[Rfam]
RNA sequence: UGGUGACCUGAGGCUCCCCAGCUGUCACUCUGUCCCAGGGCACAGGCUGAGUCGCAGUAGAGUCUGUGGGGUCCUGACCC
Numbered sequence: 001u002g003g004u005g006a007c008c009u010g011a012g013g014c015u016c017c018c019c020a021g022c023u024g025u026c027a028c029u030c031u032g033u034c035c036c037a038g039g040g041c042a043c044a045g046g047c048u049g050a051g052u053c054g055c056a057g058u059a060g061a062g063u064c065u066g067u068g069g070g071g072u073c074c075u076g077a078c079c080c
Stems, first nucleotide, its partner, number of pairs: 002079003005073005011065006021058005027052004032047003
This 80-nucleotide sequence from Canis lupus belongs to the Rfam family "mir-8813 microRNA precursor family". It scores 88 bits against the family's covariance model. Taxonomically the source falls in Canis lupus (Eukaryota, Chordata, Craniata, Canis). Gene Ontology terms of the family: miRNA-mediated post-transcriptional gene silencing and RISC complex.